[Rfam]
RNA sequence: GGAGUGUCAUUGUAAUAGUAAUUGAACUUAGUACGAGAGGAACCGUUCAUUCACGUAAUUGGUAUUUACACCUGUUCGAGAGGACAAUGGUGUGAAGCUACCACGUGCUGGAUUAUGGCUGAACGCCUCUAAGCCAGAAUCCGUGCUAGAAACAAUGAUUUUGUCCCGUUGUAGGACUCCUGUGGGACAAAUGAUAAUAU
Dot-bracket structure: .....((((((((..((((.(.(((((.................))))).)(((((...(((.....((((((((((....)))))..)))))....)))..))))).(((....(((((...........)))))....))).))))...)))))))).....................(.........).........
Numbered sequence: 001g002g003a004g005u006g007u008c009a010u011u012g013u014a015a016u017a018g019u020a021a022u023u024g025a026a027c028u029u030a031g032u033a034c035g036a037g038a039g040g041a042a043c044c045g046u047u048c049a050u051u052c053a054c055g056u057a058a059u060u061g062g063u064a065u066u067u068a069c070a071c072c073u074g075u076u077c078g079a080g081a082g083g084a085c086a087a088u089g090g091u092g093u094g095a096a097g098c099u100a101c102c103a104c105g106u107g108c109u110g111g112a113u114u115a116u117g118g119c120u121g122a123a124c125g126c127c128u129c130u131a132a133g134c135c136a137g138a139a140u141c142c143g144u145g146c147u148a149g150a151a152a153c154a155a156u157g158a159u160u161u162u163g164u165c166c167c168g169u170u171g172u173a174g175g176a177c178u179c180c181u182g183u184g185g186g187a188c189a190a191a192u193g194a195u196a197a198u199a200u
Stems, first nucleotide, its partner, number of pairs: 006159008016148004021051001023049005052107005060100003068093005073086005109143003116136005181191001
Archaeal large subunit ribosomal RNA: a 200-nucleotide part of an RNA from Puccinia coronata. A search with the family's covariance model found it, with a score of 1396 bits.